[Rfam]
RNA sequence: AAGUAAACAAAUGGCAAUAUGGAGGCAUAGCAGGGCCAUAAAUACAAACAGCUAUGCCAACAUCUUGCCAUAUUUUCUCUCC
Numbered sequence: 001a002a003g004u005a006a007a008c009a010a011a012u013g014g015c016a017a018u019a020u021g022g023a024g025g026c027a028u029a030g031c032a033g034g035g036c037c038a039u040a041a042a043u044a045c046a047a048a049c050a051g052c053u054a055u056g057c058c059a060a061c062a063u064c065u066u067g068c069c070a071u072a073u074u075u076u077c078u079c080u081c082c
Stems, first nucleotide, its partner, number of pairs: 006076002009073001011071007019063003024058008

The family of this 82-nucleotide RNA from Cyprinus carpio is "mir-31 microRNA precursor family". The family is grouped with related families in Rfam's "mir-31 microRNA precursor family". Pairs were carried over by alignment from the consensus structure, which was predicted with RNAalifold. The source organism's lineage runs through Eukaryota, Clupeocephala, Ostariophysi, Cypriniphysae and Cyprinus carpio. A search with the family's covariance model found it, with a score of 51 bits.